Shown here is a 137-nucleotide RNA sequence from Thermoflavimicrobium daqui, a member of the family "c-di-AMP riboswitch aptamer (ydaO/yuaA leader)".
The match comes from Rfam's covariance-model search (105 bits).
RNA sequence: GCCAUUCGAUCGCUGAGUCCAUAUUGGAGCGGGGGAACCAUCUUUUGGGGUGAAUCCUGUACUUUGUUGCAGGUAGGGUUAACUCUCUGAGAGCCCGAAUCCGUCAGCUAACCUCGUAAGCGUUUGAGAGGAGUGGU
Dot-bracket structure: ..........((((...(((.....)))((((((....((.....))(((.....((((..........))))..((((.............))))...))).........)))))).))))...............